[Rfam]
RNA: Bacterial small signal recognition particle RNA
Organism: Tistrella mobilis
RNA sequence: GAAGGCUGGCGCGGACGGAGAGCCUCGCCAACCCGGUCAGGGCCGGAAGGCAGCAGCCGUAACGAGUUGCGAUCCGGGUCGCUGUCCAGCCUUCCAC
Numbered sequence: 001g002a003a004g005g006c007u008g009g010c011g012c013g014g015a016c017g018g019a020g021a022g023c024c025u026c027g028c029c030a031a032c033c034c035g036g037u038c039a040g041g042g043c044c045g046g047a048a049g050g051c052a053g054c055a056g057c058c059g060u061a062a063c064g065a066g067u068u069g070c071g072a073u074c075c076g077g078g079u080c081g082c083u084g085u086c087c088a089g090c091c092u093u094c095c096a097c
Stems, first nucleotide, its partner, number of pairs: 003092005008085001011082003016076004024066004034059004042051003